[Rfam]
RNA: tRNA
Organism: Atta cephalotes
RNA sequence: GGGUCCGUAAGUGUAUAGGCAGCACUCUGGACUUUGAAUCCAGCGAUCCGAGUUCAAAUCUCGGCGGAACCU
Numbered sequence: 001g002g003g004u005c006c007g008u009a010a011g012u013g014u015a016u017a018g019g020c021a022g023c024a025c026u027c028u029g030g031a032c033u034u035u036g037a038a039u040c041c042a043g044c045g046a047u048c049c050g051a052g053u054u055c056a057a058a059u060c061u062c063g064g065c066g067g068a069a070c071c072u
Base pairs, nucleotide, nucleotide: 001071002070004068005067006066007065011025012024013023014022027043028042029041030040031039048064049063050062051061052060